Rfam assigns this 108-nucleotide RNA from Metabacillus sediminilitoris to the family "SAM riboswitch aptamer (S box leader)".
The source organism's lineage runs through Bacteria, Bacillota, Bacilli, Bacillaceae and Metabacillus.
RNA sequence: CUUUCAUUAGAGAGCUGGAGGACUGGCCUUAUGAAGCCCGGCAACCAUUCAACAACUUUGUUGAAAAGGUGCUAAUUCCUGCAAAGCAUAUUGUUUGACAAAUAAGAG
Dot-bracket structure: ((((.(((...(.((...(((.[.[[)))......)).)((((.((.((((..........))))..))))))...(]].]((((.(.....)))))..)))).))))